[Rfam]
RNA sequence: CGCGGGAUGGAGCAGUUGGCAGCUCGUUGGGCUCAUAACCCAAAGGUCGCAGGUUCGAGUCCUGCUCCCGCAA
Numbered sequence: 001c002g003c004g005g006g007a008u009g010g011a012g013c014a015g016u017u018g019g020c021a022g023c024u025c026g027u028u029g030g031g032c033u034c035a036u037a038a039c040c041c042a043a044a045g046g047u048c049g050c051a052g053g054u055u056c057g058a059g060u061c062c063u064g065c066u067c068c069c070g071c072a073a
Stems, first nucleotide, its partner, number of pairs: 002071006010025004027043005049065005
Shown here is a 73-nucleotide sequence from Paraclostridium benzoelyticum, a member of the family "tRNA". A search with the family's covariance model found it, with a score of 66 bits. NCBI's taxonomy places the organism under Bacteria, Bacillati, Clostridia, Peptostreptococcaceae, Paraclostridium. Pairs were carried over by alignment from the consensus structure, which is taken from published work.